[Rfam]
RNA: uup RNA
RNA sequence: GACGAAUUAGCUCUGUACAAACAGGUAUGAUGAAACAUUGUGCAGAGC
Numbered sequence: 001g002a003c004g005a006a007u008u009a010g011c012u013c014u015g016u017a018c019a020a021a022c023a024g025g026u027a028u029g030a031u032g033a034a035a036c037a038u039u040g041u042g043c044a045g046a047g048c
Base pairs, nucleotide, nucleotide: 011047012046013045014044015043017041018040019039